[Rfam]
RNA sequence: CAUGCACCAGUGGGGUCCCUCGGCCUGGCCUGUGAAACCGGCUCUCCAACAUCCCCCAGGGGUCCUGGAUUGUGAGAGGGUGCAGGCCAGGCUGAGGGACCCCACCUGUGCAUG
Number, nucleotide and partner (000 for none) at each position: 001c000002a000003u112004g111005c000006a109007c000008c000009a000010g105011u000012g103013g102014g101015g100016u099017c098018c097019c096020u095021c094022g093023g092024c091025c090026u000027g088028g087029c086030c085031u084032g083033u082034g081035a000036a000037a000038c000039c000040g000041g000042c000043u000044c000045u000046c000047c000048a000049a000050c000051a000052u000053c000054c000055c000056c000057c000058a000059g000060g000061g000062g000063u000064c000065c000066u000067g000068g000069a000070u000071u000072g000073u000074g000075a000076g000077a000078g000079g000080g000081u034082g033083c032084a031085g030086g029087c028088c027089a000090g025091g024092c023093u022094g021095a020096g019097g018098g017099a016100c015101c014102c013103c012104a000105c010106c000107u000108g000109u006110g000111c004112a003113u000114g000
RNA: mir-9193 microRNA precursor family